[Rfam]
RNA sequence: GGGUGUCCACACAAAGGGUGUGGGCAGGACAUGCGUUGGUCGGGCCGCCGCG
Number, nucleotide and partner (000 for none) at each position: 001g000002g000003g000004u000005g025006u024007c023008c022009a021010c020011a019012c018013a000014a000015a000016g000017g000018g012019u011020g010021u009022g008023g007024g006025c005026a000027g000028g000029a000030c000031a000032u000033g000034c052035g051036u050037u000038g049039g048040u047041c000042g000043g000044g000045c000046c000047g040048c039049c038050g036051c035052g034